[Rfam]
RNA sequence: UGGGAGGGCGAUACACAGGUAGAAGUAAGAUGUGUUCUGUCUGUCACAAACCUUCCCUACACUAAAACUGCUUUCUGAUGACUGGGGCGAACUGAGAGAAAUCGCAAUGGACAGAUACGAAGCUGACAAAC
Numbered sequence: 001u002g003g004g005a006g007g008g009c010g011a012u013a014c015a016c017a018g019g020u021a022g023a024a025g026u027a028a029g030a031u032g033u034g035u036u037c038u039g040u041c042u043g044u045c046a047c048a049a050a051c052c053u054u055c056c057c058u059a060c061a062c063u064a065a066a067a068c069u070g071c072u073u074u075c076u077g078a079u080g081a082c083u084g085g086g087g088c089g090a091a092c093u094g095a096g097a098g099a100a101a102u103c104g105c106a107a108u109g110g111a112c113a114g115a116u117a118c119g120a121a122g123c124u125g126a127c128a129a130a131c
Base pairs, nucleotide, nucleotide: 002057003056004055005054006053007052015044016043017042018041022037023036024035068125070123071122072121073120074119082110083109084108087105088104089103090102
Small Cajal body specific RNA 8: a 131-nucleotide RNA from Acipenser ruthenus. scaRNAs are a specific class of small nuclear RNAs which localise to the Cajal bodies and guide the modification of RNA polymerase II transcribed spliceosomal RNAs U1, U2, U4, U5 and U12. U92 belong to the H/ACA box class of guide RNAs as it has the predicted hairpin-hinge-hairpin-tail structure, conserved H/ACA-box motifs and is found associated with GAR1. The family has 22 seed sequences and 955 matches in Rfam 15.1. A reference for the family is Darzacq et al. (2002), "Cajal body-specific small nuclear RNAs: a novel class of 2'-O-methylation and pseudouridylation guide RNAs", EMBO J. It scores 112 bits against the family's covariance model.